[Rfam]
RNA sequence: UGGGAACCGGGAGAUGGCAUUCUCCUUAAACGCCGGGCUCUCCGGCUAAUGAUGCCUACCGUUGU
Numbered sequence: 001u002g003g004g005a006a007c008c009g010g011g012a013g014a015u016g017g018c019a020u021u022c023u024c025c026u027u028a029a030a031c032g033c034c035g036g037g038c039u040c041u042c043c044g045g046c047u048a049a050u051g052a053u054g055c056c057u058a059c060c061g062u063u064g065u
Stems, first nucleotide, its partner, number of pairs: 010025004016056006032046004
Shown here is a 65-nucleotide RNA sequence from Paraburkholderia sp. DHOC27, a member of the family "Fluoride riboswitch aptamer (crcB RNA motif)". The match comes from Rfam's covariance-model search (52 bits). Lineage of the source: Bacteria > Betaproteobacteria > Burkholderiales > Burkholderiaceae > Paraburkholderia.